[Rfam]
RNA sequence: CGAAUCUCAAGCAAUCAAGCAUUCUACUUCUAUUGCA
Numbered sequence: 001c002g003a004a005u006c007u008c009a010a011g012c013a014a015u016c017a018a019g020c021a022u023u024c025u026a027c028u029u030c031u032a033u034u035g036c037a
Base pairs, nucleotide, nucleotide: 002024003023004022005021006019007018011036012035013034014033015032
RNA: 5'-leader pseudoknot of TEV/CVMV
Organism: Potyvirus nicotianainsculpentis